[Rfam]
RNA sequence: UUACUUACCUGGCAGGGGCAAAACCAUGAUCAAGGAGGUGGUUUGCCUAAAGCGAGGCUCAGCCAUUGCACUCGGGCUGUGCUGACCUUUCUGAAUUCCCCAAAUGCGGGAAUCUCGACUGCAUAAUUUCUGAUAGUGGGGGACUGCGUUCGCGCUCUCUCCUU
Numbered sequence: 001u002u003a004c005u006u007a008c009c010u011g012g013c014a015g016g017g018g019c020a021a022a023a024c025c026a027u028g029a030u031c032a033a034g035g036a037g038g039u040g041g042u043u044u045g046c047c048u049a050a051a052g053c054g055a056g057g058c059u060c061a062g063c064c065a066u067u068g069c070a071c072u073c074g075g076g077c078u079g080u081g082c083u084g085a086c087c088u089u090u091c092u093g094a095a096u097u098c099c100c101c102a103a104a105u106g107c108g109g110g111a112a113u114c115u116c117g118a119c120u121g122c123a124u125a126a127u128u129u130c131u132g133a134u135a136g137u138g139g140g141g142g143a144c145u146g147c148g149u150u151c152g153c154g155c156u157c158u159c160u161c162c163u164u
Stems, first nucleotide, its partner, number of pairs: 012122004016048006023042005049090004054086001056083003060079005092117003095113003099109002138163006146155003